[Rfam]
RNA sequence: CGGUCCUUGCAUCGCCUGACAGCGGGUGACCGGAUGGACGGGGUCCGAACACUUAUGGGGUAGACCGUCCGCACGAGCGUCCGAUCGUCCUGCGCGUCCCGGACGGCGGGCACGGAUCCACCCCCGCCACCGGAGGU
Numbered sequence: 001c002g003g004u005c006c007u008u009g010c011a012u013c014g015c016c017u018g019a020c021a022g023c024g025g026g027u028g029a030c031c032g033g034a035u036g037g038a039c040g041g042g043g044u045c046c047g048a049a050c051a052c053u054u055a056u057g058g059g060g061u062a063g064a065c066c067g068u069c070c071g072c073a074c075g076a077g078c079g080u081c082c083g084a085u086c087g088u089c090c091u092g093c094g095c096g097u098c099c100c101g102g103a104c105g106g107c108g109g110g111c112a113c114g115g116a117u118c119c120a121c122c123c124c125c126g127c128c129a130c131c132g133g134a135g136g137u
Stems, first nucleotide, its partner, number of pairs: 025053004031047005057124005063118002065115004
The record is a 137-nucleotide RNA from Streptomyces nitrosporeus, which matches "NLPC-P60 RNA" in Rfam. The match comes from Rfam's covariance-model search (70 bits). The family's consensus secondary structure is taken from published work. The organism belongs to Streptomyces, within Bacteria. Rfam classes the family as a cis-regulatory element.